A member of the RNA family "MIR398 microRNA precursor family" from Helianthus annuus, 173 nucleotides long.
Its family is annotated with RISC complex and miRNA-mediated post-transcriptional gene silencing in the Gene Ontology.
RNA sequence: CAUUUCUCCACAGGAGUGACACUAAGAACACAUAUGGUGGAAUUGCAAUUUACAUAUAUAAAAGGUGCAUUGAUAUGUUGUAUAAUUGUACAAACAUCUAAUGCACAUACUUUUGUUUGUAAAGUCUUGUCGGCAAUCCGUAUGUGUUCUCAGGUCACCCCUUUGGAGCACCA
Numbered sequence: 001c002a003u004u005u006c007u008c009c010a011c012a013g014g015a016g017u018g019a020c021a022c023u024a025a026g027a028a029c030a031c032a033u034a035u036g037g038u039g040g041a042a043u044u045g046c047a048a049u050u051u052a053c054a055u056a057u058a059u060a061a062a063a064g065g066u067g068c069a070u071u072g073a074u075a076u077g078u079u080g081u082a083u084a085a086u087u088g089u090a091c092a093a094a095c096a097u098c099u100a101a102u103g104c105a106c107a108u109a110c111u112u113u114u115g116u117u118u119g120u121a122a123a124g125u126c127u128u129g130u131c132g133g134c135a136a137u138c139c140g141u142a143u144g145u146g147u148u149c150u151c152a153g154g155u156c157a158c159c160c161c162u163u164u165g166g167a168g169c170a171c172c173a
Stems, first nucleotide, its partner, number of pairs: 007167002012162003016158004025150013
NCBI's taxonomy places the organism under Eukaryota, Embryophyta, Euphyllophyta, Heliantheae alliance, Helianthus.